This 102-nucleotide RNA sequence from Enterobacterales bacterium CwR94 belongs to the Rfam family "t44 RNA".
By type it is a small RNA.
[Rfam]
RNA sequence: CUCACUAUGUGUAAAUAACACACACGUAUCGAUACCCACGCCGGGGUGCCAGAUAACGCUUGCGUUUGAAGGUCGGUUGUUGGGGAUACGUGGAGGCCCAAC
Numbered sequence: 001c002u003c004a005c006u007a008u009g010u011g012u013a014a015a016u017a018a019c020a021c022a023c024a025c026g027u028a029u030c031g032a033u034a035c036c037c038a039c040g041c042c043g044g045g046g047u048g049c050c051a052g053a054u055a056a057c058g059c060u061u062g063c064g065u066u067u068g069a070a071g072g073u074c075g076g077u078u079g080u081u082g083g084g085g086a087u088a089c090g091u092g093g094a095g096g097c098c099c100a101a102c
Base pairs, nucleotide, nucleotide: 023092024091025090026089027088028087029086030085035083036082038080039079040077041076042075043074048073049072050071